[Rfam]
RNA sequence: UACAUGCAUGACUGCAAGUCUCUUUGAAUAAAAGCGUCUGCUAAAUGGCAUCUA
Dot-bracket structure: ............((((...(.((((.....)))).)..))).)...........